[Rfam]
RNA sequence: CAACCGUUGGAGCGAUCCAACGCUGAACGGACAGAAGUCAGCAGAGGUCAUAGUACCCGUCUAGCUUAGAUAGAAGGGGAAGGAC
Numbered sequence: 001c002a003a004c005c006g007u008u009g010g011a012g013c014g015a016u017c018c019a020a021c022g023c024u025g026a027a028c029g030g031a032c033a034g035a036a037g038u039c040a041g042c043a044g045a046g047g048u049c050a051u052a053g054u055a056c057c058c059g060u061c062u063a064g065c066u067u068a069g070a071u072a073g074a075a076g077g078g079g080a081a082g083g084a085c
Stems, first nucleotide, its partner, number of pairs: 001025002005022007038045002047085003056078003060074003

About this RNA: A member of the RNA family "Group II catalytic intron D1-D4-1" from Geobacillus kaustophilus, 85 nucleotides long. Taxonomically the source falls in Geobacillus kaustophilus (Bacteria, Bacilli, Caryophanales, Geobacillus). The pairing is the family consensus, mapped onto this sequence.